MIR162_1 microRNA precursor family: a 106-nucleotide RNA sequence from Populus trichocarpa. Lineage of the source: Eukaryota > Spermatophyta > Pentapetalae > rosids > Populus. Clan: MIR167 microRNA precursor clan. It is one of the family's seed sequences.
RNA sequence: GGGAAGACACUGGAGGCAGCGGUUCAUCGAUCUCUUCCUGGCCAAUUUUUUGUUUAGCACGAAAAACAUGAACCGAUCGAUAAACCUCUGCAUCCAGCGCUUCCUU
Number, nucleotide and partner (000 for none) at each position: 001g000002g000003g000004a000005a000006g000007a000008c000009a000010c000011u000012g095013g094014a093015g000016g000017c090018a089019g088020c000021g086022g085023u084024u083025c000026a081027u080028c079029g078030a077031u076032c075033u000034c000035u072036u071037c070038c000039u000040g000041g000042c000043c000044a000045a000046u000047u000048u000049u000050u000051u000052g000053u000054u000055u000056a000057g000058c000059a000060c000061g000062a000063a000064a000065a000066a000067c000068a000069u000070g037071a036072a035073c000074c000075g032076a031077u030078c029079g028080a027081u026082a000083a024084a023085c022086c021087u000088c019089u018090g017091c000092a000093u014094c013095c012096a000097g000098c000099g000100c000101u000102u000103c000104c000105u000106u000